[Rfam]
Rfam assigns this 134-nucleotide RNA from Crenothrix polyspora to the family "Y RNA-like". By type it is a small RNA. Lineage of the source: Bacteria > Pseudomonadati > Methylococcales > Crenotrichaceae > Crenothrix. A search with the family's covariance model found it, with a score of 80 bits. In Deinococcus radiodurans Rsr is tethered via Y RNA to the exoribonuclease PNPase and channels single-stranded RNA into the PNPase cavity. Rsr and Y RNA enhance degradation of structured RNAs by PNPase. This role could be conserved, as Rsr and ncRNAs called YrlA and YrlB (Y RNA like) also associate with PNPase in an evolutionary distant bacterium Salmonella Typhimurium. On this family, see Chen et al., Cell 2013: "An RNA degradation machine sculpted by Ro autoantigen and noncoding RNA".

RNA sequence: UUGGCGAAUGCAGGUGUAACUACAUGGCUGAUAACCCGAUGAACGUGGGUUCGAUUCCCGCCGGUUCCGACAACGAUGGAACCGUAGCUCAAUGGUAGAGCGUCGCACGUUACACCGACUCUUGUCGCCAAUCU
Numbered sequence: 001u002u003g004g005c006g007a008a009u010g011c012a013g014g015u016g017u018a019a020c021u022a023c024a025u026g027g028c029u030g031a032u033a034a035c036c037c038g039a040u041g042a043a044c045g046u047g048g049g050u051u052c053g054a055u056u057c058c059c060g061c062c063g064g065u066u067c068c069g070a071c072a073a074c075g076a077u078g079g080a081a082c083c084g085u086a087g088c089u090c091a092a093u094g095g096u097a098g099a100g101c102g103u104c105g106c107a108c109g110u111u112a113c114a115c116c117g118a119c120u121c122u123u124g125u126c127g128c129c130a131a132u133c134u
Stems, first nucleotide, its partner, number of pairs: 002130006013116007023105001038104003045061005052095001062084008087101004